[Rfam]
RNA sequence: CCUCCGUCUUCCCCGCACAGGAAGGCGGACAGAGGAACCGAGGCUCUCUGCCCUGACUGCCUUGGAUCCUCGUCCUUCGGCCGACCGGGACCGCACACCCCGCGGCCGAUGCUGCUCCGGGCUGCGGUGCCGGGAGGGUUGAGGGUCCCUCUCAGGCGC
Numbered sequence: 001c002c003u004c005c006g007u008c009u010u011c012c013c014c015g016c017a018c019a020g021g022a023a024g025g026c027g028g029a030c031a032g033a034g035g036a037a038c039c040g041a042g043g044c045u046c047u048c049u050g051c052c053c054u055g056a057c058u059g060c061c062u063u064g065g066a067u068c069c070u071c072g073u074c075c076u077u078c079g080g081c082c083g084a085c086c087g088g089g090a091c092c093g094c095a096c097a098c099c100c101c102g103c104g105g106c107c108g109a110u111g112c113u114g115c116u117c118c119g120g121g122c123u124g125c126g127g128u129g130c131c132g133g134g135a136g137g138g139u140u141g142a143g144g145g146u147c148c149c150u151c152u153c154a155g156g157c158g159c
Stems, first nucleotide, its partner, number of pairs: 003029004008024005032071005038065004043060002045056002077109007087100003113129004118124002132153007
The record is a 159-nucleotide RNA sequence from Streptomyces viridochromogenes, which matches "Streptomyces sRNA scr5239" in Rfam. Gene Ontology terms of the family: negative regulation of translation and mRNA binding. It is annotated as a small RNA. The family's consensus secondary structure is taken from published work. The match comes from Rfam's covariance-model search (162 bits).